[Rfam]
RNA sequence: UGCUCCGGUGCGAGGGGCGGUCUUUCCCAAGAACCACGGCGGUGAAAUGACCUCACCAAGCCCCACCCCGUCCCUCCCGCCCGCAGCGCUCGCUCACUCGCGCGAGUGAACAUCACCAACUCGGGUGGAAUUUGGGCCUAUUGCCUGACCUACUCUCAGCGCAACAGCACCCGCAGAAAUGCGACGGCCCCCGCCGGGACGGCAAUCCCAGUGCGAGGGCCUGACCACCGAGAAGGAAAGCCCCUUCCU
Numbered sequence: 001u002g003c004u005c006c007g008g009u010g011c012g013a014g015g016g017g018c019g020g021u022c023u024u025u026c027c028c029a030a031g032a033a034c035c036a037c038g039g040c041g042g043u044g045a046a047a048u049g050a051c052c053u054c055a056c057c058a059a060g061c062c063c064c065a066c067c068c069c070g071u072c073c074c075u076c077c078c079g080c081c082c083g084c085a086g087c088g089c090u091c092g093c094u095c096a097c098u099c100g101c102g103c104g105a106g107u108g109a110a111c112a113u114c115a116c117c118a119a120c121u122c123g124g125g126u127g128g129a130a131u132u133u134g135g136g137c138c139u140a141u142u143g144c145c146u147g148a149c150c151u152a153c154u155c156u157c158a159g160c161g162c163a164a165c166a167g168c169a170c171c172c173g174c175a176g177a178a179a180u181g182c183g184a185c186g187g188c189c190c191c192c193g194c195c196g197g198g199a200c201g202g203c204a205a206u207c208c209c210a211g212u213g214c215g216a217g218g219g220c221c222u223g224a225c226c227a228c229c230g231a232g233a234a235g236g237a238a239a240g241c242c243c244c245u246u247c248c249u
Base pairs, nucleotide, nucleotide: 007229008228009227010226016081017080018079019078094109095108096107097106098105099104124160126158127157128156186221187220188219189218190217192215193214194213196209197208198207199206232247233246234245235244236243
RNA: Streptomyces sRNA 4677
Organism: Streptomyces aurantiogriseus